A member of the RNA family "Saccharopolyspora sRNA 350" from Actinorhabdospora filicis, 513 nucleotides long.
The source organism's lineage runs through Bacteria, Bacillati, Actinomycetota, Micromonosporales and Actinorhabdospora.
Pairs were carried over by alignment from the consensus structure, which was predicted with RNAfold.
For this family Rfam cites "Prediction and characterization of small non-coding RNAs related to secondary metabolites in Saccharopolyspora erythraea" (Liu et al., PLoS One, 2013).

RNA sequence: AUUCCCAGAUGGCGCCGUCGUCGGCGCCGCCGCCCAGGAGGAGGGCGUUGCCGAAGAACUCGCCGGAUCCGCUGGUGCCGAGCACGACCUGGUCGCCGAACUCGCCGGUGCCGGUCUCCUGGACCUUGCCGUGGGCGAUGAGGUGGACCUGGUCGACGGGGUUGCCGAACUCGGCGAUGACCUGGCCGGGCUCGUACUCGCGCUGGGUGAAGCGCCCGGCGAGCGCGGCCAGCGUGGCCUCGUCGUCGAAGUCGCGCAGGGCGGCCAGUUCGCGCAGUUCGGCGGGGAUGACGGCGAUCUCGGCGCCGGUGGUGGUGAAGCUGACGCGGCCGUCGCCGAGGGUGUAGGUGAGGCGCCGGUUGACGCGGUAGGUGCCACCGUCGACCUGUUCCCAGGGGAGCAUCUUGAGCAGCCACCGGGGUGAGAUGCCCUGCAUCUGGGGUGUGGACUUGGUGGUGCUGGACAGGUUCCGGGCCGCGCGUGUGCUCAGGCUGAGCUGCUGGGCCUCGUGCU
Numbered sequence: 001a002u003u004c005c006c007a008g009a010u011g012g013c014g015c016c017g018u019c020g021u022c023g024g025c026g027c028c029g030c031c032g033c034c035c036a037g038g039a040g041g042a043g044g045g046c047g048u049u050g051c052c053g054a055a056g057a058a059c060u061c062g063c064c065g066g067a068u069c070c071g072c073u074g075g076u077g078c079c080g081a082g083c084a085c086g087a088c089c090u091g092g093u094c095g096c097c098g099a100a101c102u103c104g105c106c107g108g109u110g111c112c113g114g115u116c117u118c119c120u121g122g123a124c125c126u127u128g129c130c131g132u133g134g135g136c137g138a139u140g141a142g143g144u145g146g147a148c149c150u151g152g153u154c155g156a157c158g159g160g161g162u163u164g165c166c167g168a169a170c171u172c173g174g175c176g177a178u179g180a181c182c183u184g185g186c187c188g189g190g191c192u193c194g195u196a197c198u199c200g201c202g203c204u205g206g207g208u209g210a211a212g213c214g215c216c217c218g219g220c221g222a223g224c225g226c227g228g229c230c231a232g233c234g235u236g237g238c239c240u241c242g243u244c245g246u247c248g249a250a251g252u253c254g255c256g257c258a259g260g261g262c263g264g265c266c267a268g269u270u271c272g273c274g275c276a277g278u279u280c281g282g283c284g285g286g287g288a289u290g291a292c293g294g295c296g297a298u299c300u301c302g303g304c305g306c307c308g309g310u311g312g313u314g315g316u317g318a319a320g321c322u323g324a325c326g327c328g329g330c331c332g333u334c335g336c337c338g339a340g341g342g343u344g345u346a347g348g349u350g351a352g353g354c355g356c357c358g359g360u361u362g363a364c365g366c367g368g369u370a371g372g373u374g375c376c377a378c379c380g381u382c383g384a385c386c387u388g389u390u391c392c393c394a395g396g397g398g399a400g401c402a403u404c405u406u407g408a409g410c411a412g413c414c415a416c417c418g419g420g421g422u423g424a425g426a427u428g429c430c431c432u433g434c435a436u437c438u439g440g441g442g443u444g445u446g447g448a449c450u451u452g453g454u455g456g457u458g459c460u461g462g463a464c465a466g467g468u469u470c471c472g473g474g475c476c477g478c479g480c481g482u483g484u485g486c487u488c489a490g491g492c493u494g495a496g497c498u499g500c501u502g503g504g505c506c507u508c509g510u511g512c513u
Stems, first nucleotide, its partner, number of pairs: 001390001006388003010384001012382001014330002017327002021324005028317001034315003039310001044307004051303004056235001059232002062229004069113001071111002077105001079104004085098002088095001120223001124219002128215002132211001133208001136205002140201001142199001145198002152193001155191001157189001159187002162180002166176002236298001238296001242292006252284001255281002258279002261273003331344004353381003358376002363373002393433005399427001401425001403423001405420002409417001439478001441476002445472004449467004454462001479512002483506001486503001488499003